[Rfam]
RNA sequence: AAGGCUGUCCGGGCCCCUCUGGUGAGCCCACGGCGCCUCUGCGCCACUCGCGAUGUCGGACAUCCGCA
Number, nucleotide and partner (000 for none) at each position: 001a000002a000003g000004g000005c000006u062007g061008u060009c059010c058011g057012g056013g000014c000015c000016c000017c000018u000019c000020u000021g000022g051023u050024g049025a048026g047027c000028c000029c000030a000031c000032g045033g044034c043035g042036c041037c000038u000039c000040u000041g036042c035043g034044c033045c032046a000047c026048u025049c024050g023051c022052g000053a000054u000055g000056u012057c011058g010059g009060a008061c007062a006063u000064c000065c000066g000067c000068a000
Shown here is a 68-nucleotide RNA from Rubritepida sp., a member of the family "terC RNA".
It scores 45 bits against the family's covariance model.
Rfam classes the family as a cis-regulatory element.